A member of the RNA family "mir-181 microRNA precursor family" from Betta splendens, 80 nucleotides long. The match comes from Rfam's covariance-model search (64 bits). Rfam 15.1 lists 3,490 matches to the family in 650 species.

RNA sequence: GAGUGCUGGGGAACAUUCAACGCUGUCGGUGAGUUUGUGACUCUGUGAAACCAUCGAGCGUUGAUUGUACCUUUACACUC
Numbered sequence: 001g002a003g004u005g006c007u008g009g010g011g012a013a014c015a016u017u018c019a020a021c022g023c024u025g026u027c028g029g030u031g032a033g034u035u036u037g038u039g040a041c042u043c044u045g046u047g048a049a050a051c052c053a054u055c056g057a058g059c060g061u062u063g064a065u066u067g068u069a070c071c072u073u074u075a076c077a078c079u080c
Base pairs, nucleotide, nucleotide: 001080002079003078004077005076008073014067015066017064018063019062020061021060022059026057027056028055029054030053031052033051034050035049036048